[Rfam]
RNA sequence: UUUUAAGCAUAAGUAUAUCCCAGGCAGUAUUUGGGGCAUAAUUAUACUAAAA
Number, nucleotide and partner (000 for none) at each position: 001u000002u000003u000004u000005a000006a048007g047008c000009a045010u044011a043012a042013g000014u040015a039016u038017a000018u036019c035020c034021c033022a031023g000024g000025c000026a000027g000028u000029a000030u000031u022032u000033g021034g020035g019036g018037c000038a016039u015040a014041a000042u012043u011044a010045u009046a000047c007048u006049a000050a000051a000052a000

A member of the RNA family "mir-1302 microRNA precursor family" from Diceros bicornis, 52 nucleotides long. Gene Ontology terms of the family: miRNA-mediated post-transcriptional gene silencing and RISC complex. The organism belongs to Diceros bicornis, within Eukaryota. The family has 24 seed sequences and 16,160 matches in Rfam 15.1. It scores 63 bits against the family's covariance model.